[Rfam]
RNA sequence: AUGCACAGUGAACACCCAAGGAUGCUAUUGUGGCUUCCCCUGGUCAUUGUAUUUGUGCUACAGUAAAUCUGAUCUGUACCUCUGCAGUAGGAAAGUGUGCUCUUCUCCUACAUGUAUUCAACGGGUCAGAAUAAAC
Numbered sequence: 001a002u003g004c005a006c007a008g009u010g011a012a013c014a015c016c017c018a019a020g021g022a023u024g025c026u027a028u029u030g031u032g033g034c035u036u037c038c039c040c041u042g043g044u045c046a047u048u049g050u051a052u053u054u055g056u057g058c059u060a061c062a063g064u065a066a067a068u069c070u071g072a073u074c075u076g077u078a079c080c081u082c083u084g085c086a087g088u089a090g091g092a093a094a095g096u097g098u099g100c101u102c103u104u105c106u107c108c109u110a111c112a113u114g115u116a117u118u119c120a121a122c123g124g125g126u127c128a129g130a131a132u133a134a135a136c
Stems, first nucleotide, its partner, number of pairs: 003058006010052001013049002016043003020039001022036001024034003060075001062073001064071002083120002085114002089109004094104002
RNA: Small nucleolar RNA SNORA22